[Rfam]
RNA: UnaL2 LINE 3' element
Organism: Clupea harengus
RNA sequence: GAUGUUCUCCUUUGUACGUCGCUUUGGAUAAAAGCGUCUGCUAAAUUACUAAAU
Numbered sequence: 001g002a003u004g005u006u007c008u009c010c011u012u013u014g015u016a017c018g019u020c021g022c023u024u025u026g027g028a029u030a031a032a033a034g035c036g037u038c039u040g041c042u043a044a045a046u047u048a049c050u051a052a053a054u
Base pairs, nucleotide, nucleotide: 013043014041015040016039020036021035022034023033024032025031